[Rfam]
RNA sequence: GAUCGGGCGCACAGAAUCGCGGCCCGGUUGGUAGCCCGGGCGCUGCUGUAGCGACAGCAGUCUGUAUCCGCCCUCUCCAGGGAUGUCCGGUGCGCCGGAAUCCGGC
Number, nucleotide and partner (000 for none) at each position: 001g000002a000003u000004c098005g000006g096007g095008c094009g093010c092011a091012c000013a000014g000015a000016a000017u000018c000019g000020c000021g000022g041023c040024c039025c038026g037027g036028u000029u000030g000031g000032u000033a000034g000035c000036c027037c026038g025039g024040g023041c022042g061043c060044u059045g058046c057047u056048g055049u054050a000051g000052c000053g000054a049055c048056a047057g046058c045059a044060g043061u042062c000063u000064g000065u000066a000067u000068c000069c000070g000071c082072c081073c080074u079075c000076u000077c000078c000079a074080g073081g072082g071083a000084u000085g000086u000087c000088c000089g000090g000091u011092g010093c009094g008095c007096c006097g000098g004099a000100a000101u000102c000103c000104g000105g000106c000
Rfam assigns this 106-nucleotide RNA from Streptomyces albiflaviniger to the family "azaaromatic riboswitch aptamer (yjdF RNA)". It scores 56 bits against the family's covariance model.